[Rfam]
RNA: Xanthomonas sRNA sX9
Organism: Xanthomonas oryzae
RNA sequence: AUGGACCACUCGUCCAUUGCGGUCUGGGCGCGCCGUCCGCCCCGCCUGACGCCUGCUUGCGCUGUGUUGUCAGCC
Numbered sequence: 001a002u003g004g005a006c007c008a009c010u011c012g013u014c015c016a017u018u019g020c021g022g023u024c025u026g027g028g029c030g031c032g033c034c035g036u037c038c039g040c041c042c043c044g045c046c047u048g049a050c051g052c053c054u055g056c057u058u059g060c061g062c063u064g065u066g067u068u069g070u071c072a073g074c075c
Stems, first nucleotide, its partner, number of pairs: 002016005020035004025030001046073006